[Rfam]
RNA sequence: GGCUCAUCCAGAGGGGCAGAGGGACCGGCCCAGUGAAGCCCCGGCAACCACCCGCAUCAGUGCGUGGCAGGUGCUAAUUCCGUCCCAGGACGCAACCGGCUCCUGGGAAAGAUGAGGA
Numbered sequence: 001g002g003c004u005c006a007u008c009c010a011g012a013g014g015g016g017c018a019g020a021g022g023g024a025c026c027g028g029c030c031c032a033g034u035g036a037a038g039c040c041c042c043g044g045c046a047a048c049c050a051c052c053c054g055c056a057u058c059a060g061u062g063c064g065u066g067g068c069a070g071g072u073g074c075u076a077a078u079u080c081c082g083u084c085c086c087a088g089g090a091c092g093c094a095a096c097c098g099g100c101u102c103c104u105g106g107g108a109a110a111g112a113u114g115a116g117g118a
Base pairs, nucleotide, nucleotide: 003116004115005114006113007112008111013042014041015040016039017038021031022030023029026082027081028080043075044074045073046072048071049070051066053064054063055062079110084107085106086105087104088103089102
Record summary: Rfam assigns this 118-nucleotide RNA from Candidatus Protofrankia datiscae to the family "SAM riboswitch aptamer (S box leader)". Rfam links the family to the GO term regulation of gene expression. The match comes from Rfam's covariance-model search (80 bits).